[Rfam]
Nucleotides: 136
Base pairs, nucleotide, nucleotide: 006026007025008024009023010022034051035050036049037047038046039045040044062077063076064075065074082133083132084131085130086129092099093098105127106126107125108124109123110122
Number, partner (000 for none) and nucleotide at each position: 001000g002000a003000c004000u005000c006026g007025c008024a009023c010022a011000g012000g013000u014000c015000u016000a017000u018000u019000u020000c021000u022010u023009g024008u025007g026006c027000c028000c029000u030000g031000g032000a033000c034051c035050a036049g037047g038046a039045c040044c041000u042000c043000g044040g045039g046038u047037c048000g049036c050035u051034g052000g053000g054000a055000u056000g057000g058000a059000a060000a061000u062077c063076u064075c065074u066000c067000g068000c069000c070000g071000u072000u073000a074065a075064g076063a077062g078000u079000g080000c081000u082133c083132a084131a085130c086129c087000a088000c089000u090000a091000c092099c093098c094000g095000a096000a097000a098093g099092g100000a101000u102000g103000a104000a105127g106126a107125u108124c109123g110122c111000u112000a113000c114000u115000a116000a117000g118000c119000c120000c121000u122110g123109c124108g125107a126106u127105u128000u129086g130085g131084u132083u133082g134000u135000u136000u